[Rfam]
RNA sequence: CCUCUUCCUGGUUCAAGUAAUCCAGGAUAGGCUGGUUCCCACCAGCUCGGCCUAUUCUCCAUUACUUGUUUCAGGAGGCGG
Numbered sequence: 001c002c003u004c005u006u007c008c009u010g011g012u013u014c015a016a017g018u019a020a021u022c023c024a025g026g027a028u029a030g031g032c033u034g035g036u037u038c039c040c041a042c043c044a045g046c047u048c049g050g051c052c053u054a055u056u057c058u059c060c061a062u063u064a065c066u067u068g069u070u071u072c073a074g075g076a077g078g079c080g081g
Stems, first nucleotide, its partner, number of pairs: 002080001004078002007075005014068008024058010

Record summary: Shown here is an 81-nucleotide sequence from Synaphobranchus kaupii, a member of the family "mir-26 microRNA precursor family". The source organism's lineage runs through Eukaryota, Bilateria, Deuterostomia, Vertebrata and Synaphobranchus. Rfam 15.1 lists 2,251 matches to the family in 645 species. A search with the family's covariance model found it, with a score of 78 bits.